[Rfam]
Nucleotides: 129
Base pairs, nucleotide, nucleotide: 003127004126009123010122011121012120013119014118015117017115018114020113021112023110024109026108027107028106029105030104031103034098035097036096037091039089040088042086043085044084045083046082047081048080049079
Number, partner (000 for none) and nucleotide at each position: 001000u002000a003127g004126a005000c006000a007000a008000a009123u010122u011121a012120u013119u014118g015117u016000a017115u018114u019000c020113g021112a022000c023110u024109g025000g026108a027107u028106u029105c030104a031103c032000g033000a034098u035097a036096u037091g038000u039089a040088u041000u042086u043085g044084u045083g046082a047081a048080u049079a050000c051000a052000g053000u054000a055000a056000c057000g058000u059000a060000a061000a062000u063000a064000g065000c066000g067000c068000a069000a070000u071000u072000c073000a074000u075000g076000g077000u078000c079049u080048a081047u082046u083045c084044a085043u086042a087000u088040g089039u090000u091037u092000u093000u094000a095000a096036a097035u098034g099000g100000a101000a102000a103031g104030u105029g106028a107027a108026u109024c110023a111000a112021u113020u114018a115017a116000c117015a118014u119013a120012a121011u122010a123009g124000a125000c126004u127003c128000a129000u
Annotation: The family of this 129-nucleotide RNA sequence from Nicotiana sylvestris is "MIR6152 microRNA precursor family". Lineage of the source: Eukaryota > Viridiplantae > Tracheophyta > Magnoliopsida > Nicotiana.